[Rfam]
RNA sequence: AUCGGGGUAGGACCCAAAGCGUUAAGUGCCGCCGGAACGGAAUGUGAACGACGGACGAAAAAUCAGCUAACCGCACUGAAAGGAUAGGUGUAACUUGCUGAUUUGCGGUUUUGGGUCCGCAUUCGCCGCA
Number, nucleotide and partner (000 for none) at each position: 001a000002u000003c128004g127005g126006g000007g000008u000009a000010g118011g117012a116013c115014c114015c113016a112017a111018a110019g109020c107021g106022u105023u000024a000025a000026g056027u055028g000029c054030c053031g052032c000033c050034g049035g000036a000037a000038c000039g000040g124041a123042a122043u121044g120045u000046g000047a000048a000049c034050g033051a000052c031053g030054g029055a027056c026057g000058a000059a000060a104061a103062a102063u101064c100065a099066g098067c097068u000069a000070a000071c000072c000073g000074c000075a000076c000077u000078g000079a000080a000081a000082g000083g000084a000085u000086a000087g000088g000089u000090g000091u000092a000093a000094c000095u000096u000097g067098c066099u065100g064101a063102u062103u061104u060105g022106c021107g020108g000109u019110u018111u017112u016113g015114g014115g013116u012117c011118c010119g000120c044121a043122u042123u041124c040125g000126c005127c004128g003129c000130a000
Shown here is a 130-nucleotide sequence from Loigolactobacillus coryniformis, a member of the family "THF (Tetrahydrofolate) riboswitch aptamer". Its family is annotated with tetrahydrofolate metabolic process in the Gene Ontology. Taxonomically the source falls in Loigolactobacillus coryniformis subsp. coryniformis (Bacteria, Bacillati, Bacillota, Bacilli). The literature on the family includes a 2010 paper in Chem Biol by Ames et al., "A eubacterial riboswitch class that senses the coenzyme tetrahydrofolate".